Shown here is a 159-nucleotide sequence from Hymenobacter daecheongensis, a member of the family "Aggregatibacter sRNA 41". From the family's description: Validated by RT-PCR, expression up-regulated during growth. Lineage of the source: Bacteria > Bacteroidota > Cytophagia > Hymenobacter > Hymenobacter daecheongensis. A search with the family's covariance model found it, with a score of 103 bits. It is annotated as a small RNA.

RNA sequence: AAGGAACGUCCUGCUGAGCUUGUCGAAGCAUCUCUACUGCUUCAUCUGAUUAGUAACUCAACGAAGCGGUAGUGAUGCUUCGACAAGCUCAGCAGGACGUUCCUUUUGGCCGAUAGUUAUUAAAAAAAGCGCCCUGGCCAUACUGGCCGGGGCGCUUUU
Numbered sequence: 001a002a003g004g005a006a007c008g009u010c011c012u013g014c015u016g017a018g019c020u021u022g023u024c025g026a027a028g029c030a031u032c033u034c035u036a037c038u039g040c041u042u043c044a045u046c047u048g049a050u051u052a053g054u055a056a057c058u059c060a061a062c063g064a065a066g067c068g069g070u071a072g073u074g075a076u077g078c079u080u081c082g083a084c085a086a087g088c089u090c091a092g093c094a095g096g097a098c099g100u101u102c103c104u105u106u107u108g109g110c111c112g113a114u115a116g117u118u119a120u121u122a123a124a125a126a127a128a129g130c131g132c133c134c135u136g137g138c139c140a141u142a143c144u145g146g147c148c149g150g151g152g153c154g155c156u157u158u159u
Base pairs, nucleotide, nucleotide: 001118002117007099008098009097010096011095012094013093015091016090017089018088019087020086021085022084023083024082025081026080027079029077030076031075032074129155130154131153132152133151134150135149136148137147138146139145140144